[Rfam]
RNA sequence: GCGGGCACUUGGCAGCCUUGUGAUGUCACACAGAGAAGUCACGGGGUCUGUAGGCUGC
Number, nucleotide and partner (000 for none) at each position: 001g058002c057003g056004g055005g000006c000007a000008c053009u052010u000011g000012g048013c000014a000015g047016c046017c045018u044019u043020g042021u041022g040023a039024u038025g031026u030027c000028a000029c000030a026031c025032a000033g000034a000035g000036a000037a000038g024039u023040c022041a021042c020043g019044g018045g017046g016047u015048c012049u000050g000051u000052a009053g008054g000055c004056u003057g002058c001

Background
MAT2A 3'UTR stem loop B: a 58-nucleotide sequence from Monodelphis domestica. A search with the family's covariance model found it, with a score of 50 bits. Rfam 15.1 lists 248 matches to the family in 157 species. By type it is a cis-regulatory element. The family's consensus secondary structure is taken from published work. For this family Rfam cites "New families of human regulatory RNA structures identified by comparative analysis of vertebrate genomes" (Parker et al., Genome Res, 2011).